[Rfam]
RNA sequence: UAUAGAAAAAAGCAAACCUUUGGAAACAAAGGGACGCAAAGCUAUAGGGCCUGUAAGAUGGUAGCCAGUUGCCGAA
Numbered sequence: 001u002a003u004a005g006a007a008a009a010a011a012g013c014a015a016a017c018c019u020u021u022g023g024a025a026a027c028a029a030a031g032g033g034a035c036g037c038a039a040a041g042c043u044a045u046a047g048g049g050c051c052u053g054u055a056a057g058a059u060g061g062u063a064g065c066c067a068g069u070u071g072c073c074g075a076a
Base pairs, nucleotide, nucleotide: 012037013036017032018031019030020029021028022027040070041069042068043067047066048065049062050061051060